[Rfam]
RNA sequence: GUAUUGUGGGGACCACCUCUCCGAGAGGUGUUUGGCAGUAGCCAGCAGCGACGGCCCGCACGCUAGUCUAGACCCCUUCGUGCACACCAUUCAGCAUCCGUCCGAGCAAGCCAUGCCGCUUUUUUCA
Number, nucleotide and partner (000 for none) at each position: 001g000002u000003a000004u000005u000006g119007u118008g117009g116010g112011g111012a000013c000014c030015a029016c028017c027018u026019c025020u024021c000022c000023g000024a020025g019026a018027g017028g016029u015030g014031u000032u000033u000034g043035g042036c041037a000038g000039u000040a000041g036042c035043c034044a000045g107046c106047a000048g000049c000050g102051a101052c100053g099054g098055c000056c000057c000058g083059c082060a081061c000062g000063c080064u000065a078066g077067u000068c000069u000070a000071g000072a000073c000074c000075c000076c000077u066078u065079c000080g063081u060082g059083c058084a000085c000086a000087c000088c000089a000090u000091u000092c000093a000094g000095c000096a000097u000098c054099c053100g052101u051102c050103c000104g000105a000106g046107c045108a000109a000110g000111c011112c010113a000114u000115g000116c009117c008118g007119c006120u000121u000122u000123u000124u000125u000126c000127a000
About this RNA
A member of the RNA family "Burkholderia sRNA 39" from Trinickia caryophylli, 127 nucleotides long. From the family's description: Trans-encoded, exhibits differential expression profiles dependent on growth phase and cell stimuli, such as antbiotics and serum. May function in bacterial metabolism and adaptation to the host. Shown to be expressed in biotin. It is annotated as a small RNA. The family's consensus secondary structure was predicted with RNAfold. On this family, see Stubben et al., BMC Genomics 2014: "Differential expression of small RNAs from Burkholderia thailandensis in response to varying environmental and stress conditions".